[Rfam]
RNA sequence: GUCCAUUCCAAAGGAGUGAUCCUAAGAACACAAGGUGGUGUUAGCCACUUUCGCAUUUACAAUUAAUGCACCUUGUGUUCUCAGGACACCCCUUUGGAAAACAC
Numbered sequence: 001g002u003c004c005a006u007u008c009c010a011a012a013g014g015a016g017u018g019a020u021c022c023u024a025a026g027a028a029c030a031c032a033a034g035g036u037g038g039u040g041u042u043a044g045c046c047a048c049u050u051u052c053g054c055a056u057u058u059a060c061a062a063u064u065a066a067u068g069c070a071c072c073u074u075g076u077g078u079u080c081u082c083a084g085g086a087c088a089c090c091c092c093u094u095u096g097g098a099a100a101a102c103a104c
Stems, first nucleotide, its partner, number of pairs: 007098002011094004016089003025081009
Source information:
Rfam assigns this 104-nucleotide RNA from Rosa chinensis to the family "MIR398 microRNA precursor family". It scores 63 bits against the family's covariance model. The family's consensus secondary structure was predicted with WAR. Lineage of the source: Eukaryota > Viridiplantae > Streptophyta > Mesangiospermae > Rosa. A reference for the family is Jones-Rhoades and Bartel (2004), "Computational identification of plant microRNAs and their targets, including a stress-induced miRNA", Mol Cell.